[Rfam]
This 102-nucleotide RNA sequence from Domibacillus iocasae belongs to the Rfam family "Purine riboswitch aptamer".
RNA sequence: CAUUACUUUUCAUAUUUGUAUCGUAUAUCGUCAAGAAUAAGGCUUGACAGUUUCUACCGGGCUGCCGUAAAUGGCCUGACUACGAACGAAUAGAAAGAGAAU
Numbered sequence: 001c002a003u004u005a006c007u008u009u010u011c012a013u014a015u016u017u018g019u020a021u022c023g024u025a026u027a028u029c030g031u032c033a034a035g036a037a038u039a040a041g042g043c044u045u046g047a048c049a050g051u052u053u054c055u056a057c058c059g060g061g062c063u064g065c066c067g068u069a070a071a072u073g074g075c076c077u078g079a080c081u082a083c084g085a086a087c088g089a090a091u092a093g094a095a096a097g098a099g100a101a102u
Base pairs, nucleotide, nucleotide: 021085022084023083024082025081030048031047032046033045034044035043058078059077060076061075062074063073064072